The record is a 98-nucleotide RNA sequence from Hibiscus trionum, which matches "MIR398 microRNA precursor family" in Rfam.
Taxonomically the source falls in Hibiscus (Eukaryota, Spermatophyta, Gunneridae, Malvaceae).
The base pairs follow the family's consensus structure, which was predicted with WAR.
The literature on the family includes a 2004 paper in Mol Cell by Jones-Rhoades and Bartel, "Computational identification of plant microRNAs and their targets, including a stress-induced miRNA".
[Rfam]
RNA sequence: GGGAGCCCUACAGGGGCGACCUGAGAACACACGAACUGAUCAAACAUCGAAUCGGGAAAUGGUCGCGUGUGUUCUCAGGUCGACCCGGUUGGACUCCU
Dot-bracket structure: ......((..(.((..(((...((((((((((..................................))))))))))...)))..)).)..))......